Description: The record is a 523-nucleotide sequence from Actinomadura spongiicola, which matches "Saccharopolyspora sRNA 350" in Rfam. The match comes from Rfam's covariance-model search (180 bits).
RNA sequence: UUGACCGUGUACUCCCAUUUCGCGGGUUCGUCUCCCUCGGCCGUGCCGAGGAGGGCCUGUUCGCCGAUGAAAUCACCGUUCGCGAGCGUGCCGAGGACGGCGUCCGCGCCGUACUCGCCCGCGCCGAUCAGGCUGAGCUUGCCGUGCGCGAUGAGAACGACCCGGUCGACGGGACGUCCCCGCUCGACGACGACGUCACCGGGCUCGUACUCCUGCUGGGUGAAGCGGCCCGCGAUGGCGUCCAGCGUGAGCUCGUCGUCGUAGCCGCGCAGCGGUGGGAGUUCGCCCAGUUCGCGGGGGAUGACACGGAUAUCGGCGCCGGUGGUCACGAAGGUGACGCGCCCGUCCCCGAGCGUGUAGGUCAGCCGCCGGUUGACCCGGUAGGCGCCGCCGGACGCCUGCACCCAGGGCAGCAGUUUCAGCAGCCACCGCGACGUGAUCCCCUGCAUCUGGGGGACGGACUUGGUCGUGGUCGCCAGGUUCCGUGCCGCCGUGGUACCGAGGCUCAACUGCUGCUGUUCCU
Numbered sequence: 001u002u003g004a005c006c007g008u009g010u011a012c013u014c015c016c017a018u019u020u021c022g023c024g025g026g027u028u029c030g031u032c033u034c035c036c037u038c039g040g041c042c043g044u045g046c047c048g049a050g051g052a053g054g055g056c057c058u059g060u061u062c063g064c065c066g067a068u069g070a071a072a073u074c075a076c077c078g079u080u081c082g083c084g085a086g087c088g089u090g091c092c093g094a095g096g097a098c099g100g101c102g103u104c105c106g107c108g109c110c111g112u113a114c115u116c117g118c119c120c121g122c123g124c125c126g127a128u129c130a131g132g133c134u135g136a137g138c139u140u141g142c143c144g145u146g147c148g149c150g151a152u153g154a155g156a157a158c159g160a161c162c163c164g165g166u167c168g169a170c171g172g173g174a175c176g177u178c179c180c181c182g183c184u185c186g187a188c189g190a191c192g193a194c195g196u197c198a199c200c201g202g203g204c205u206c207g208u209a210c211u212c213c214u215g216c217u218g219g220g221u222g223a224a225g226c227g228g229c230c231c232g233c234g235a236u237g238g239c240g241u242c243c244a245g246c247g248u249g250a251g252c253u254c255g256u257c258g259u260c261g262u263a264g265c266c267g268c269g270c271a272g273c274g275g276u277g278g279g280a281g282u283u284c285g286c287c288c289a290g291u292u293c294g295c296g297g298g299g300g301a302u303g304a305c306a307c308g309g310a311u312a313u314c315g316g317c318g319c320c321g322g323u324g325g326u327c328a329c330g331a332a333g334g335u336g337a338c339g340c341g342c343c344c345g346u347c348c349c350c351g352a353g354c355g356u357g358u359a360g361g362u363c364a365g366c367c368g369c370c371g372g373u374u375g376a377c378c379c380g381g382u383a384g385g386c387g388c389c390g391c392c393g394g395a396c397g398c399c400u401g402c403a404c405c406c407a408g409g410g411c412a413g414c415a416g417u418u419u420c421a422g423c424a425g426c427c428a429c430c431g432c433g434a435c436g437u438g439a440u441c442c443c444c445u446g447c448a449u450c451u452g453g454g455g456g457a458c459g460g461a462c463u464u465g466g467u468c469g470u471g472g473u474c475g476c477c478a479g480g481u482u483c484c485g486u487g488c489c490g491c492c493g494u495g496g497u498a499c500c501g502a503g504g505c506u507c508a509a510c511u512g513c514u515g516c517u518g519u520u521c522c523u
Stems, first nucleotide, its partner, number of pairs: 007404005021397002025343002029339001031337002034334002037331002051327002055323003062318006069248001073244001077240003080126001082124002090118001092117004097112005134235001137233002142227001145224001146221002149218002153214001155212001159210001165206001168204001170202001172200002177193002181189002249311001252308001255305006265297005271292003275286003344357003366394003370390003377385002406446005412440001414438002418433001420431001422430001452491001454489002457486005462480006493521001495517003500512001502511002
The base pairs follow the family's consensus structure, which was predicted with RNAfold. It is annotated as an antisense RNA.